c-di-GMP-I riboswitch aptamer: an 88-nucleotide RNA from Rhodoferax ferrireducens.
It is one of the family's seed sequences.
Pairs were carried over by alignment from the consensus structure, which is taken from published work.

RNA sequence: CAAGUUCAAAAGCACACCCGAUCGAAAGACGGGGUCGCAAAGCUUCCGGCCUGACGCAUUCGUGCGAAGUGGUAGCGGGGUUGCCCAA
Numbered sequence: 001c002a003a004g005u006u007c008a009a010a011a012g013c014a015c016a017c018c019c020g021a022u023c024g025a026a027a028g029a030c031g032g033g034g035u036c037g038c039a040a041a042g043c044u045u046c047c048g049g050c051c052u053g054a055c056g057c058a059u060u061c062g063u064g065c066g067a068a069g070u071g072g073u074a075g076c077g078g079g080g081u082u083g084c085c086c087a088a
Base pairs, nucleotide, nucleotide: 012038013037017033018032019031020030022029023028041082042081043080044079046078047077048076049073050072051071057066059064